[Rfam]
RNA sequence: CAUCGCCAGCCGUGUGAGCGCCACGGCCCUCACACCAGCGCGAUUUUGAUUCUGGUCGUGCCGCUGGCUCACAAGGCCACCGUCAUGCGCACCAGGGGAACCGCCGGGCAUCGUCCCGGCAGGCCCUGCGCAGUCUCGCCACUGAUCGGCCUCGGCCUUCGGCAGCGCGACGUAGAUAGCACGACCUGGCG
Numbered sequence: 001c002a003u004c005g006c007c008a009g010c011c012g013u014g015u016g017a018g019c020g021c022c023a024c025g026g027c028c029c030u031c032a033c034a035c036c037a038g039c040g041c042g043a044u045u046u047u048g049a050u051u052c053u054g055g056u057c058g059u060g061c062c063g064c065u066g067g068c069u070c071a072c073a074a075g076g077c078c079a080c081c082g083u084c085a086u087g088c089g090c091a092c093c094a095g096g097g098g099a100a101c102c103g104c105c106g107g108g109c110a111u112c113g114u115c116c117c118g119g120c121a122g123g124c125c126c127u128g129c130g131c132a133g134u135c136u137c138g139c140c141a142c143u144g145a146u147c148g149g150c151c152u153c154g155g156c157c158u159u160c161g162g163c164a165g166c167g168c169g170a171c172g173u174a175g176a177u178a179g180c181a182c183g184a185c186c187u188g189g190c191g
Stems, first nucleotide, its partner, number of pairs: 004042003012035007020027002056184006062082002065079005086132005095127004101123002104119005134170002137167003142162004148157003
RNA: RT-15 RNA
Organism: Pseudomonas aeruginosa